A member of the RNA family "Archaeal large subunit ribosomal RNA" from Methanolinea tarda, 97 nucleotides of a longer RNA. The source organism's lineage runs through Archaea, Methanobacteriati, Methanobacteriota, Methanoregulaceae and Methanolinea tarda.
RNA sequence: GUUGCAGCAUGAAAGGAUCUUCCACGCGAAGGAACCCGUCGCGAGGCGGUAGUACGGGCGUGGUUGCCGAUGUCGCAACGUACGUUUUGAAGAACGG
Numbered sequence: 001g002u003u004g005c006a007g008c009a010u011g012a013a014a015g016g017a018u019c020u021u022c023c024a025c026g027c028g029a030a031g032g033a034a035c036c037c038g039u040c041g042c043g044a045g046g047c048g049g050u051a052g053u054a055c056g057g058g059c060g061u062g063g064u065u066g067c068c069g070a071u072g073u074c075g076c077a078a079c080g081u082a083c084g085u086u087u088u089g090a091a092g093a094a095c096g097g
Stems, first nucleotide, its partner, number of pairs: 001079005007073004015068002022063006031055001036049005083096003

The literature on the family includes a 2001 paper in Science by Yusupov et al., "Crystal structure of the ribosome at 5.5 A resolution".